Rfam assigns this 84-nucleotide sequence from Mesorhizobium hungaricum to the family "Repression of heat shock gene expression (ROSE) element".
The family's consensus secondary structure is taken from published work.
Rfam 15.1 lists 381 matches to the family in 262 species.
[Rfam]
RNA sequence: UCGGGGCUACGGCCCGACGGUUUUGGCGUCGCAGAGACGCUGCUUGUUACCCAUGUUGCUUUACGGAGGAUAUGGCUAUGAGAA
Numbered sequence: 001u002c003g004g005g006g007c008u009a010c011g012g013c014c015c016g017a018c019g020g021u022u023u024u025g026g027c028g029u030c031g032c033a034g035a036g037a038c039g040c041u042g043c044u045u046g047u048u049a050c051c052c053a054u055g056u057u058g059c060u061u062u063a064c065g066g067a068g069g070a071u072a073u074g075g076c077u078a079u080g081a082g083a084a
Stems, first nucleotide, its partner, number of pairs: 001017005007012001024042007043082005051075007059068003
A reference for the family is Nocker et al. (2001), "A mRNA-based thermosensor controls expression of rhizobial heat shock genes", Nucleic Acids Res.
The organism belongs to Mesorhizobium, within Bacteria.
It is annotated as an RNA thermoregulator.
This family represents a 5' UTR cis-regulatory element found in heat shock mRNAs and is known as the ROSE (repression of heat shock gene expression) element. The ROSE element is a negative regulator of heat shock gene expression.
Rfam links the family to the GO terms regulation of translation and response to temperature stimulus.